RNA sequence: UCCCACAGCUACUGGUCUGCAGCUGUUCUUAUGGUAGCAGUUGUGGCAUUCCUCUGUGGAAAAUAAACUGUUAACACAAUUGAAAUGCCUCUUUCUUAGCAAAACAGAAAGUGGACAUGUGUGUGACAAACAGGG
Numbered sequence: 001u002c003c004c005a006c007a008g009c010u011a012c013u014g015g016u017c018u019g020c021a022g023c024u025g026u027u028c029u030u031a032u033g034g035u036a037g038c039a040g041u042u043g044u045g046g047c048a049u050u051c052c053u054c055u056g057u058g059g060a061a062a063a064u065a066a067a068c069u070g071u072u073a074a075c076a077c078a079a080u081u082g083a084a085a086u087g088c089c090u091c092u093u094u095c096u097u098a099g100c101a102a103a104a105c106a107g108a109a110a111g112u113g114g115a116c117a118u119g120u121g122u123g124u125g126a127c128a129a130a131c132a133g134g135g
Stems, first nucleotide, its partner, number of pairs: 003059004017046009074124005089114002091111006
RNA: Small nucleolar RNA SNORA41
Organism: Erinaceus europaeus